[Rfam]
RNA sequence: GCUGGCCGAGUGACAACCGGCCGAAAUGGAGACGACGGACGCGGCCUAUUUUGCCGGUUUCAGGCUGCGACAGCAACGUAUUGGUACGUGCUAACGCCUAAUCCGUUCUCGGC
Numbered sequence: 001g002c003u004g005g006c007c008g009a010g011u012g013a014c015a016a017c018c019g020g021c022c023g024a025a026a027u028g029g030a031g032a033c034g035a036c037g038g039a040c041g042c043g044g045c046c047u048a049u050u051u052u053g054c055c056g057g058u059u060u061c062a063g064g065c066u067g068c069g070a071c072a073g074c075a076a077c078g079u080a081u082u083g084g085u086a087c088g089u090g091c092u093a094a095c096g097c098c099u100a101a102u103c104c105g106u107u108c109u110c111g112g113c
Stems, first nucleotide, its partner, number of pairs: 006112004011023002014020001025107006034098001036096002040069007070085002074083001
The record is a 113-nucleotide sequence from Methylovirgula ligni, which matches "Rhizobiales sRNA Atu_At1" in Rfam. NCBI's taxonomy places the organism under Bacteria, Pseudomonadati, Pseudomonadota, Beijerinckiaceae, Methylovirgula. A search with the family's covariance model found it, with a score of 79 bits. The family has 33 seed sequences and 200 matches in Rfam 15.1. Rfam classes the family as a small RNA. The base pairs follow the family's consensus structure, which was predicted with CMfinder.